[Rfam]
RNA sequence: AAGCGUUGAAGCAUGGUAGCGUACCGGUAAGCCUUACUAUGCCGAGCUUUCAGUAGGGGUUGUGUAGUAACCUCAAACCGGAGUAGGUGAAAACCGAAAGAAAAUACUCAAA
Number, nucleotide and partner (000 for none) at each position: 001a049002a048003g047004c046005g000006u000007u000008g000009a000010a000011g042012c041013a040014u039015g038016g037017u036018a035019g034020c000021g032022u031023a000024c081025c080026g079027g078028u000029a000030a000031g022032c021033c000034u019035u018036a017037c016038u015039a014040u013041g012042c011043c000044g000045a000046g004047c003048u002049u001050u000051c000052a000053g000054u000055a000056g000057g000058g000059g000060u000061u000062g000063u000064g107065u106066a105067g000068u000069a000070a000071c000072c000073u000074c000075a000076a000077a000078c027079c026080g025081g024082a000083g000084u000085a000086g095087g094088u093089g000090a000091a000092a000093a088094c087095c086096g000097a000098a000099a000100g000101a000102a000103a000104a000105u066106a065107c064108u000109c000110a000111a000112a000
RNA: drum RNA